[Rfam]
RNA sequence: GCAACUUCAUCGCCGAAUCCCGGUUGUCCGGGAACGGGGGAUCCGACUGUUCCUCUGGGGUGAAUCCGAUUUUAUCGGUAGGGUGUUUUCUUCUGCCGCCCGAACCCGUCAGCUAACUUCGUAGGCGAACGCAGGAGAGGUC
Number, nucleotide and partner (000 for none) at each position: 001g000002c000003a000004a000005c000006u000007u000008c000009a000010u000011c127012g126013c125014c124015g000016a000017a000018u033019c032020c031021c030022g029023g000024u000025u000026g000027u000028c000029c022030g021031g020032g019033a018034a122035c121036g120037g119038g118039g117040g000041a000042u000043c000044c057045g056046a000047c000048u000049g000050u000051u000052c000053c000054u000055c000056u045057g044058g107059g106060g105061u000062g000063a000064a000065u000066c078067c077068g076069a075070u000071u000072u000073u000074a000075u069076c068077g067078g066079u000080a000081g101082g100083g099084u098085g000086u000087u000088u000089u000090c000091u000092u000093c000094u000095g000096c000097c000098g084099c083100c082101c081102g000103a000104a000105c060106c059107c058108g000109u000110c000111a000112g000113c000114u000115a000116a000117c039118u038119u037120c036121g035122u034123a000124g014125g013126c012127g011128a000129a000130c000131g000132c000133a000134g000135g000136a000137g000138a000139g000140g000141u000142c000
Rfam assigns this 142-nucleotide RNA from Alicyclobacillaceae bacterium I2511 to the family "c-di-AMP riboswitch aptamer (ydaO/yuaA leader)". A reference for the family is Barrick et al. (2004), "New RNA motifs suggest an expanded scope for riboswitches in bacterial genetic control", Proc Natl Acad Sci U S A. The source organism's lineage runs through Bacteria, Bacillati, Bacillota, Caryophanales and Alicyclobacillaceae.